[Rfam]
RNA sequence: GAUUGCAGUGAUGACCUCAGAAAAAUUCAAGCUCAACAGACCGGAAUGCAGGAUUCUUAACUGAGUUUUGCGUGUCGAUAACCCGCUCACUGAGCAGUC
Dot-bracket structure: ((((((.......................................................................................))))))
Numbered sequence: 001g002a003u004u005g006c007a008g009u010g011a012u013g014a015c016c017u018c019a020g021a022a023a024a025a026u027u028c029a030a031g032c033u034c035a036a037c038a039g040a041c042c043g044g045a046a047u048g049c050a051g052g053a054u055u056c057u058u059a060a061c062u063g064a065g066u067u068u069u070g071c072g073u074g075u076c077g078a079u080a081a082c083c084c085g086c087u088c089a090c091u092g093a094g095c096a097g098u099c
Stems, first nucleotide, its partner, number of pairs: 001099006
Rfam assigns this 99-nucleotide RNA from Helianthus annuus to the family "Small nucleolar RNA Z107/R87". The family has 9 seed sequences and 783 matches in Rfam 15.1. Rfam classes the family as a C/D-box small nucleolar RNA. The source organism's lineage runs through Eukaryota, Viridiplantae, Streptophyta, Asterales and Helianthus.